[Rfam]
RNA: Small nucleolar RNA snoR31/Z110/Z27
RNA sequence: AGUCUCAUGGGAUGAAACCUUGAAACAAUCUUAAGACACCUUCUGACACAGUGCUUAUUUACCUGUGAAUGAGAAGGCAUUUAUAUUCUGAUGAUAUC
Numbered sequence: 001a002g003u004c005u006c007a008u009g010g011g012a013u014g015a016a017a018c019c020u021u022g023a024a025a026c027a028a029u030c031u032u033a034a035g036a037c038a039c040c041u042u043c044u045g046a047c048a049c050a051g052u053g054c055u056u057a058u059u060u061a062c063c064u065g066u067g068a069a070u071g072a073g074a075a076g077g078c079a080u081u082u083a084u085a086u087u088c089u090g091a092u093g094a095u096a097u098c
Stems, first nucleotide, its partner, number of pairs: 002097002005094003044050002